[Rfam]
RNA: c-di-AMP riboswitch aptamer (ydaO/yuaA leader)
Organism: Isoptericola sp. CG 20/1183
RNA sequence: CACGGAUGACCGCCGGCAGGAGCGGGGGACCCACUUUCGGGCACCGACACGGUGUCCUUGGGGUGAAGUCGCCCAGGACGAGAGUCCUGGGGGGCCGGGUGAUUUCUCCCACCCGAACCCGACAGCUGACCUCGUAGGCGACAGGAGAGGUUGA
Numbered sequence: 001c002a003c004g005g006a007u008g009a010c011c012g013c014c015g016g017c018a019g020g021a022g023c024g025g026g027g028g029a030c031c032c033a034c035u036u037u038c039g040g041g042c043a044c045c046g047a048c049a050c051g052g053u054g055u056c057c058u059u060g061g062g063g064u065g066a067a068g069u070c071g072c073c074c075a076g077g078a079c080g081a082g083a084g085u086c087c088u089g090g091g092g093g094g095c096c097g098g099g100u101g102a103u104u105u106c107u108c109c110c111a112c113c114c115g116a117a118c119c120c121g122a123c124a125g126c127u128g129a130c131c132u133c134g135u136a137g138g139c140g141a142c143a144g145g146a147g148a149g150g151u152u153g154a
Base pairs, nucleotide, nucleotide: 001019022135023134024133025132026131027130032060033059061120062119063118069094070093072091073090074089075088076087077086097114098113099112100111